[Rfam]
RNA sequence: GCACUUGUGCUAAGGUGCAUCUAGUGCAGAUAGUGAAAUAGACAAGCACCUACUGCCCUAAGUGCUCCUUCUGGCAUAAGGG
Numbered sequence: 001g002c003a004c005u006u007g008u009g010c011u012a013a014g015g016u017g018c019a020u021c022u023a024g025u026g027c028a029g030a031u032a033g034u035g036a037a038a039u040a041g042a043c044a045a046g047c048a049c050c051u052a053c054u055g056c057c058c059u060a061a062g063u064g065c066u067c068c069u070u071c072u073g074g075c076a077u078a079a080g081g082g
Stems, first nucleotide, its partner, number of pairs: 004080004009075003013069003017065004022060003026056002029054001031052003

A member of the RNA family "mir-17 microRNA precursor family" from Kryptolebias marmoratus, 82 nucleotides long. Pairs were carried over by alignment from the consensus structure, which was predicted with RNAalifold. Rfam 15.1 lists 4,687 matches to the family in 648 species. From the family's description: This family represents the microRNA (miRNA) precursor mir-17, family, which includes mir-20, mir-91, and mir-103. miRNAs are transcribed as ~70nt precursors (modelled here) and subsequently processed by the Dicer enzyme to give a ~22nt product. In this case the mature sequence comes from the 3' arm of the precursor.